[Rfam]
RNA sequence: CAGUGGGUGCAAGUCCCACCCGGCAACCGCUCCAGCCGGAAGCAACCGGAGCAGUCAUGGAGGCAACGAAAUGGCUGAAGCCUUCGGUUAAGCGUGUCACGACAUACGGUGACAGCGCGAGUGUACAGGCCGUAACGCGA
Numbered sequence: 001c002a003g004u005g006g007g008u009g010c011a012a013g014u015c016c017c018a019c020c021c022g023g024c025a026a027c028c029g030c031u032c033c034a035g036c037c038g039g040a041a042g043c044a045a046c047c048g049g050a051g052c053a054g055u056c057a058u059g060g061a062g063g064c065a066a067c068g069a070a071a072u073g074g075c076u077g078a079a080g081c082c083u084u085c086g087g088u089u090a091a092g093c094g095u096g097u098c099a100c101g102a103c104a105u106a107c108g109g110u111g112a113c114a115g116c117g118c119g120a121g122u123g124u125a126c127a128g129g130c131c132g133u134a135a136c137g138c139g140a
Stems, first nucleotide, its partner, number of pairs: 020039005047086005052077006062067001095114006117133003
This 140-nucleotide RNA sequence from Metallibacterium scheffleri belongs to the Rfam family "Group II catalytic intron D1-D4-4". Rfam 15.1 lists 840 matches to the family in 506 species. From the family's description: Group II introns are found in rRNA, tRNA and mRNA of organelles in fungi, plants and protists, and also in mRNA in bacteria. The base pairs follow the family's consensus structure. Taxonomically the source falls in Metallibacterium (Bacteria, Pseudomonadati, Lysobacterales, Rhodanobacteraceae).